The record is a 587-nucleotide part of an RNA from Morococcus cerebrosus, which matches "Bacterial large subunit ribosomal RNA" in Rfam. The base pairs follow the family's consensus structure, which is taken from published work. The match comes from Rfam's covariance-model search (2865 bits).
[Rfam]
RNA sequence: CCCGCUGCUAGACGGAAAGACCCCGUGAACCUUUACUGUAGCUUUGCAUUGGACUUUGAAGUCACUUGUGUAGGAUAGGUGGGAGGCUUAGAAGCAGAGACGCCAGUCUCUGUGGAGCCGUCCUUGAAAUACCACCCUGGUGUCUUUGAGGUUCUAACCCAGACCCGUAAUCCGGGUCGGGGACCGUGCAUGGUAGGCAGUUUGACUGGGGCGGUCUCCUCCCAAAGAGUAACGGAGGAGUUCGAAGGUUACCUAGGUCCGGUCGGAAAUCGGACUGAUAGUGCAAUGGCAAAAGGUAGCUUAACUGCGAGACCGACAAGUCGAGCAGGUGCGAAAGCAGGACAUAGUGAUCCGGUGGUUCUGUAUGGAAGGGCCAUCGCUCAACGGAUAAAAGGUACUCCGGGGAUAACAGGCUGAUUCCGCCCAAGAGUUCAUAUCGACGGCGGAGUUUGGCACCUCGAUGUCGGCUCAUCACAUCCUGGGGCUGUAGUCGGUCCCAAGGGUAUGGCUGUUCGCCAUUUAAAGUGGUACGUGAGCUGGGUUUAAAACGUCGUGAGACAGUUUGGUCCCUAUCUGCAGUGGGCGUU
Numbered sequence: 001c002c003c004g005c006u007g008c009u010a011g012a013c014g015g016a017a018a019g020a021c022c023c024c025g026u027g028a029a030c031c032u033u034u035a036c037u038g039u040a041g042c043u044u045u046g047c048a049u050u051g052g053a054c055u056u057u058g059a060a061g062u063c064a065c066u067u068g069u070g071u072a073g074g075a076u077a078g079g080u081g082g083g084a085g086g087c088u089u090a091g092a093a094g095c096a097g098a099g100a101c102g103c104c105a106g107u108c109u110c111u112g113u114g115g116a117g118c119c120g121u122c123c124u125u126g127a128a129a130u131a132c133c134a135c136c137c138u139g140g141u142g143u144c145u146u147u148g149a150g151g152u153u154c155u156a157a158c159c160c161a162g163a164c165c166c167g168u169a170a171u172c173c174g175g176g177u178c179g180g181g182g183a184c185c186g187u188g189c190a191u192g193g194u195a196g197g198c199a200g201u202u203u204g205a206c207u208g209g210g211g212c213g214g215u216c217u218c219c220u221c222c223c224a225a226a227g228a229g230u231a232a233c234g235g236a237g238g239a240g241u242u243c244g245a246a247g248g249u250u251a252c253c254u255a256g257g258u259c260c261g262g263u264c265g266g267a268a269a270u271c272g273g274a275c276u277g278a279u280a281g282u283g284c285a286a287u288g289g290c291a292a293a294a295g296g297u298a299g300c301u302u303a304a305c306u307g308c309g310a311g312a313c314c315g316a317c318a319a320g321u322c323g324a325g326c327a328g329g330u331g332c333g334a335a336a337g338c339a340g341g342a343c344a345u346a347g348u349g350a351u352c353c354g355g356u357g358g359u360u361c362u363g364u365a366u367g368g369a370a371g372g373g374c375c376a377u378c379g380c381u382c383a384a385c386g387g388a389u390a391a392a393a394g395g396u397a398c399u400c401c402g403g404g405g406a407u408a409a410c411a412g413g414c415u416g417a418u419u420c421c422g423c424c425c426a427a428g429a430g431u432u433c434a435u436a437u438c439g440a441c442g443g444c445g446g447a448g449u450u451u452g453g454c455a456c457c458u459c460g461a462u463g464u465c466g467g468c469u470c471a472u473c474a475c476a477u478c479c480u481g482g483g484g485c486u487g488u489a490g491u492c493g494g495u496c497c498c499a500a501g502g503g504u505a506u507g508g509c510u511g512u513u514c515g516c517c518a519u520u521u522a523a524a525g526u527g528g529u530a531c532g533u534g535a536g537c538u539g540g541g542u543u544u545a546a547a548a549c550g551u552c553g554u555g556a557g558a559c560a561g562u563u564u565g566g567u568c569c570c571u572a573u574c575u576g577c578a579g580u581g582g583g584c585g586u587u
Base pairs, nucleotide, nucleotide: 001583002582003581004580005579006578007577008576010575011574012573014570015569022404023403024402025401027400028399029396030395031394032393033392035201036200037199038198042193043192045190046189047188048187051154052153053152054151055150056149057148058147059146060145061144063142064141065140066139068137078136079135080134081133082132085119086118087117094113095112096111097110098109099108100107101106158181159180160179162178163177164176165175166174167173204216205215206214207213217239218238219237220236221235222234240385242342243341248300249299250298251297252296253295254280255279257275258274259273260272261271262270281290282289305328306327307326308325311322312321313320330339331338332337353379354378355377356376357375358374359373361372362371413454414453415452417451418448419447420446421445422444423443424442428438429437465540466538467537468536469535470532471529472528473527474526475525478503479502481498482497483496484495485494486493505519506518507517508516509515546564547563548562549561550559551558552557
Dot-bracket structure: ((((((((.(((.((......((((.(((((((.((((...((.((((..(((((((((((.((((.(.........(((((..(((......((((((((....))))))))...)))............)))))).)))).)))))))))))...(((.((((((.....))))))))).....)))).))....))))..((((.....))))((((((...........))))))(.((....((((((((.((((((.......))))))...))((......))....))))))....((((..(((......)))..)))).(((....))).))..........(((((((.((........))))))))).....)......)))))..))))))........(((.((((((((...((.......))...)))))))..))))..........(((((((((((..((.((((((......))))))...)).(((((.....))))).....)))))..)..)))).).....(((((((....))).))))....))..)))))))))))....